[Rfam]
RNA sequence: GAUGAAUAUACGCUUAAUUUUCGGCAUAGGCCGGAAAGCGGGGGAACCAAUUUUGGGGCGAAUCAUGAUUGUUAUGUAGGGAACCAUCUUUCCCGAGCCCGUCAGCUAACCUCGUCAGCAUGGGAUGGGUCAAAUA
Numbered sequence: 001g002a003u004g005a006a007u008a009u010a011c012g013c014u015u016a017a018u019u020u021u022c023g024g025c026a027u028a029g030g031c032c033g034g035a036a037a038g039c040g041g042g043g044g045a046a047c048c049a050a051u052u053u054u055g056g057g058g059c060g061a062a063u064c065a066u067g068a069u070u071g072u073u074a075u076g077u078a079g080g081g082a083a084c085c086a087u088c089u090u091u092c093c094c095g096a097g098c099c100c101g102u103c104a105g106c107u108a109a110c111c112u113c114g115u116c117a118g119c120a121u122g123g124g125a126u127g128g129g130u131c132a133a134a135u136a
Stems, first nucleotide, its partner, number of pairs: 012119003018037008038115006048055002056100003064076004079094004
Rfam assigns this 136-nucleotide RNA from Paenibacillus thalictri to the family "c-di-AMP riboswitch aptamer (ydaO/yuaA leader)". This family represents a conserved RNA structure found upstream of the ydaO and yuaA genes in Bacillus subtilis and related genes in other bacteria.